[Rfam]
RNA sequence: UGCGGUCUGCGCCUCUCGACAGGAACCACAAUCCCUGGGGCCAUACUCGAUCCAAAGGGAGCUGUCCCUGGCCAGGCCCGUGGGCCUGGACACACGGCGCCCACCUACGUUUGUAGGCACCCAGGAUCGUAAACAUCCAUCGGUGGUCGUGGAUCGCAC
Numbered sequence: 001u002g003c004g005g006u007c008u009g010c011g012c013c014u015c016u017c018g019a020c021a022g023g024a025a026c027c028a029c030a031a032u033c034c035c036u037g038g039g040g041c042c043a044u045a046c047u048c049g050a051u052c053c054a055a056a057g058g059g060a061g062c063u064g065u066c067c068c069u070g071g072c073c074a075g076g077c078c079c080g081u082g083g084g085c086c087u088g089g090a091c092a093c094a095c096g097g098c099g100c101c102c103a104c105c106u107a108c109g110u111u112u113g114u115a116g117g118c119a120c121c122c123a124g125g126a127u128c129g130u131a132a133a134c135a136u137c138c139a140u141c142g143g144u145g146g147u148c149g150u151g152g153a154u155c156g157c158a159c
Stems, first nucleotide, its partner, number of pairs: 002157010012146002015143001017142003032126003037122003040118003057102003061098005072089005